[Rfam]
RNA sequence: GAGUCGACAAAAACGCGAGAUGCGUAUUUGUGUGAGGACGUCCGCCUUAAGUGGCAGGCACGGGAAGUGCUGGCGGUUGACCAACCUGAUGUGAACAGAAGUAGUCACC
Numbered sequence: 001g002a003g004u005c006g007a008c009a010a011a012a013a014c015g016c017g018a019g020a021u022g023c024g025u026a027u028u029u030g031u032g033u034g035a036g037g038a039c040g041u042c043c044g045c046c047u048u049a050a051g052u053g054g055c056a057g058g059c060a061c062g063g064g065a066a067g068u069g070c071u072g073g074c075g076g077u078u079g080a081c082c083a084a085c086c087u088g089a090u091g092u093g094a095a096c097a098g099a100a101g102u103a104g105u106c107a108c109c
Base pairs, nucleotide, nucleotide: 007031008030009029010028013025014024015023016022037077039075040074041073042072044055045054046053057071058070059069060068061067079106080105081104086098087097
Dot-bracket structure: ......((((..((((.....))))..)))).....(.((((.(((......))).(((((.....))))))))).).(((....((.........)).....)))...